MIR6217 microRNA precursor family: a 228-nucleotide sequence from Miscanthus lutarioriparius. Taxonomically the source falls in Miscanthus (Eukaryota, commelinids, Poales, Saccharinae). Rfam links the family to the GO terms RISC complex and miRNA-mediated post-transcriptional gene silencing.
[Rfam]
RNA sequence: UGGCUACAAAAUAACUUAUUCUGUAGCUAUUUUGAGUUACGAUAAUUACUACGUUAAUUUACGAGAUUAUAGUAACUCCAUACUAAGUGGUUUACUGUAACGUUAUGGUAAAUAUUUCCAUGUGUUAUAGUAAUCUAACUAUCGUAAAUAUGUAUUGACAUUAUCGUAAAUUAGUAUAUAAAAUUAUCGUAAAUGUAAGUGGCUACAGAAUAACUUAUUUUGUAGCUA
Numbered sequence: 001u002g003g004c005u006a007c008a009a010a011a012u013a014a015c016u017u018a019u020u021c022u023g024u025a026g027c028u029a030u031u032u033u034g035a036g037u038u039a040c041g042a043u044a045a046u047u048a049c050u051a052c053g054u055u056a057a058u059u060u061a062c063g064a065g066a067u068u069a070u071a072g073u074a075a076c077u078c079c080a081u082a083c084u085a086a087g088u089g090g091u092u093u094a095c096u097g098u099a100a101c102g103u104u105a106u107g108g109u110a111a112a113u114a115u116u117u118c119c120a121u122g123u124g125u126u127a128u129a130g131u132a133a134u135c136u137a138a139c140u141a142u143c144g145u146a147a148a149u150a151u152g153u154a155u156u157g158a159c160a161u162u163a164u165c166g167u168a169a170a171u172u173a174g175u176a177u178a179u180a181a182a183a184u185u186a187u188c189g190u191a192a193a194u195g196u197a198a199g200u201g202g203c204u205a206c207a208g209a210a211u212a213a214c215u216u217a218u219u220u221u222g223u224a225g226c227u228a
Stems, first nucleotide, its partner, number of pairs: 001228014016213017037192011050178002053175010065165003069161002074155001081146003087142006093132011107117002